[Rfam]
The family of this 112-nucleotide sequence from Paenibacillus pectinilyticus is "epsC RNA".
RNA sequence: AGGUAAUGUCUACUAGACCUUUAUCACUGUAGAUACUCGAUCAUGCUGUGGGCGCGUGCCGCCUUAGAUGUAAAUCAUCGGUGGUGUGAUGUGAGGUGGGGUUAAAUGCCCU
Numbered sequence: 001a002g003g004u005a006a007u008g009u010c011u012a013c014u015a016g017a018c019c020u021u022u023a024u025c026a027c028u029g030u031a032g033a034u035a036c037u038c039g040a041u042c043a044u045g046c047u048g049u050g051g052g053c054g055c056g057u058g059c060c061g062c063c064u065u066a067g068a069u070g071u072a073a074a075u076c077a078u079c080g081g082u083g084g085u086g087u088g089a090u091g092u093g094a095g096g097u098g099g100g101g102u103u104a105a106a107u108g109c110c111c112u
Stems, first nucleotide, its partner, number of pairs: 001020004007035007036095004040090008050064005067079004098112005
The family's RNA type in Rfam is cis-regulatory element.